RNA sequence: AGCAUGGGGCGAGCGAAUACCCCGUGAGGCGUCAGCUAAAGUUUCGCGUCCAUUGAUCCCCAGAAACGGGAGGACGCACAAUG
Numbered sequence: 001a002g003c004a005u006g007g008g009g010c011g012a013g014c015g016a017a018u019a020c021c022c023c024g025u026g027a028g029g030c031g032u033c034a035g036c037u038a039a040a041g042u043u044u045c046g047c048g049u050c051c052a053u054u055g056a057u058c059c060c061c062a063g064a065a066a067c068g069g070g071a072g073g074a075c076g077c078a079c080a081a082u083g
Stems, first nucleotide, its partner, number of pairs: 005024005046077006
A member of the RNA family "chrB-a RNA" from Roseibium aggregatum, 83 nucleotides long. The sequence is in the family's curated seed alignment. Rfam 15.1 lists 347 matches to the family in 339 species. By type it is a cis-regulatory element.